[Rfam]
The record is a 74-nucleotide sequence from Nannospalax galili, which matches "mir-3473 microRNA precursor family" in Rfam. Rfam 15.1 lists 1,094 matches to the family in 20 species. The source organism's lineage runs through Eukaryota, Opisthokonta, Myomorpha, Spalacidae and Nannospalax. Gene Ontology terms of the family: cellular response to mechanical stimulus, miRNA-mediated post-transcriptional gene silencing and RISC complex.

RNA sequence: ACCACUGAGCCAUCUCUCCAGCCUCUGAAAACAUAAUUUUAAAAAAAAUGGGGCUGGAGAGAUGGCUCAGUGGU
Numbered sequence: 001a002c003c004a005c006u007g008a009g010c011c012a013u014c015u016c017u018c019c020a021g022c023c024u025c026u027g028a029a030a031a032c033a034u035a036a037u038u039u040u041a042a043a044a045a046a047a048a049u050g051g052g053g054c055u056g057g058a059g060a061g062a063u064g065g066c067u068c069a070g071u072g073g074u
Stems, first nucleotide, its partner, number of pairs: 002073023